[Rfam]
RNA: RT-17 RNA
RNA sequence: GUCCUCGCCCCAUGGCGAUACAUACACACACCAAGAUUAGCUGGUAGAUGAUGACAAUAAGGUCAUCCGGUCGAAGGUUAUGAACAUUAAAAAAGCAGACAA
Numbered sequence: 001g002u003c004c005u006c007g008c009c010c011c012a013u014g015g016c017g018a019u020a021c022a023u024a025c026a027c028a029c030a031c032c033a034a035g036a037u038u039a040g041c042u043g044g045u046a047g048a049u050g051a052u053g054a055c056a057a058u059a060a061g062g063u064c065a066u067c068c069g070g071u072c073g074a075a076g077g078u079u080a081u082g083a084a085c086a087u088u089a090a091a092a093a094a095g096c097a098g099a100c101a102a
Base pairs, nucleotide, nucleotide: 006017007016008015009014039079040078041077047072050067051066052065053064054063055062